[Rfam]
RNA sequence: UGACGGGAACUCUCUGGAUGCACUUUCCGGCUAUUUAUUACUCCGAGUGUUACUCCUCAUCUGUUUCCGAAGAUG
Number, nucleotide and partner (000 for none) at each position: 001u000002g000003a000004c069005g068006g067007g066008a065009a064010c063011u000012c000013u000014c000015u000016g056017g055018a054019u000020g000021c000022a000023c000024u000025u000026u000027c000028c045029g044030g000031c000032u000033a000034u000035u000036u000037a000038u000039u000040a000041c000042u000043c000044c029045g028046a000047g000048u000049g000050u000051u000052a000053c000054u018055c017056c016057u000058c000059a000060u000061c000062u000063g010064u009065u008066u007067c006068c005069g004070a000071a000072g000073a000074u000075g000
RNA: Trypanosomatid snoRNA TB10Cs5H3